[Rfam]
RNA sequence: AGCCAGGAUCUAAAAAGAAAUAUAGGCUAAAACAUUUAAUAUGGGCAAGCAAAGAGCUGGAAAGAUUCGAAUGUAAUCCUGGUC
Number, nucleotide and partner (000 for none) at each position: 001a000002g083003c082004c081005a080006g079007g078008a077009u000010c000011u000012a000013a000014a000015a000016a000017g000018a000019a000020a000021u000022a000023u000024a000025g000026g000027c000028u000029a000030a000031a000032a000033c000034a000035u000036u000037u000038a000039a000040u000041a000042u000043g000044g000045g000046c000047a000048a000049g000050c000051a000052a000053a000054g000055a000056g000057c000058u000059g000060g000061a000062a000063a000064g000065a000066u000067u000068c000069g000070a000071a000072u000073g000074u000075a000076a000077u008078c007079c006080u005081g004082g003083u002084c000
RNA: HIV gag stem loop 3 (GSL3)